[Rfam]
RNA sequence: AUGGAAGUGAUCAUUUUUCCCCCGAAUAAUCGAAGCUGAUUAAACUGAGCAAUAUUUCUCUUCUCGGAGAAUCCAACCCAGGAAUCUGAUCCUU
Numbered sequence: 001a002u003g004g005a006a007g008u009g010a011u012c013a014u015u016u017u018u019c020c021c022c023c024g025a026a027u028a029a030u031c032g033a034a035g036c037u038g039a040u041u042a043a044a045c046u047g048a049g050c051a052a053u054a055u056u057u058c059u060c061u062u063c064u065c066g067g068a069g070a071a072u073c074c075a076a077c078c079c080a081g082g083a084a085u086c087u088g089a090u091c092c093u094u
Stems, first nucleotide, its partner, number of pairs: 001094001003092003
This 94-nucleotide sequence from Populus tomentosa belongs to the Rfam family "Small nucleolar RNA Z103".
It is annotated as a C/D-box small nucleolar RNA.
Pairs were carried over by alignment from the consensus structure, which was predicted with PFOLD.
For this family Rfam cites "The high diversity of snoRNAs in plants: identification and comparative study of 120 snoRNA genes from Oryza sativa" (Chen et al., Nucleic Acids Res, 2003).
Gene Ontology terms of the family: RNA processing and nucleolus.